A member of the RNA family "Small nucleolar RNA Z39" from Glaucidium brasilianum, 63 nucleotides long.
A search with the family's covariance model found it, with a score of 44 bits.
Rfam classes the family as a C/D-box small nucleolar RNA.
The literature on the family includes a 2003 paper in Nucleic Acids Res by Chen et al., "The high diversity of snoRNAs in plants: identification and comparative study of 120 snoRNA genes from Oryza sativa".
Rfam links the family to the GO terms nucleolus and RNA processing.
[Rfam]
RNA sequence: GUACAGAUGAUGAGCAUUUCAGUAUGACGAGCAGAAAUUAUACUGUAAACGCUUUCUAAUGUG
Numbered sequence: 001g002u003a004c005a006g007a008u009g010a011u012g013a014g015c016a017u018u019u020c021a022g023u024a025u026g027a028c029g030a031g032c033a034g035a036a037a038u039u040a041u042a043c044u045g046u047a048a049a050c051g052c053u054u055u056c057u058a059a060u061g062u063g
Stems, first nucleotide, its partner, number of pairs: 002063004012055001013053003020045008